The family of this 123-nucleotide RNA sequence from Zymomonas sp. is "Y RNA-like". The base pairs follow the family's consensus structure, which is taken from published work. The organism belongs to Zymomonas, within Bacteria. In Deinococcus radiodurans Rsr is tethered via Y RNA to the exoribonuclease PNPase and channels single-stranded RNA into the PNPase cavity. Rsr and Y RNA enhance degradation of structured RNAs by PNPase. This role could be conserved, as Rsr and ncRNAs called YrlA and YrlB (Y RNA like) also associate with PNPase in an evolutionary distant bacterium Salmonella Typhimurium. It scores 76 bits against the family's covariance model.
RNA sequence: ACGGCGAAUGCCUGUGGAACUACACCGGACUUCAGGGUCGGCGGUUCGAAUCCGCCCCCGGCUUCGGCCGGGUAGCUCAGCUGGUUAGAGCAUGAGGCUGUUUCACGACUAACUCGCCGUGAC
Numbered sequence: 001a002c003g004g005c006g007a008a009u010g011c012c013u014g015u016g017g018a019a020c021u022a023c024a025c026c027g028g029a030c031u032u033c034a035g036g037g038u039c040g041g042c043g044g045u046u047c048g049a050a051u052c053c054g055c056c057c058c059c060g061g062c063u064u065c066g067g068c069c070g071g072g073u074a075g076c077u078c079a080g081c082u083g084g085u086u087a088g089a090g091c092a093u094g095a096g097g098c099u100g101u102u103u104c105a106c107g108a109c110u111a112a113c114u115c116g117c118c119g120u121g122a123c
Stems, first nucleotide, its partner, number of pairs: 002119006013107007023096001033094002040056005057072006075091004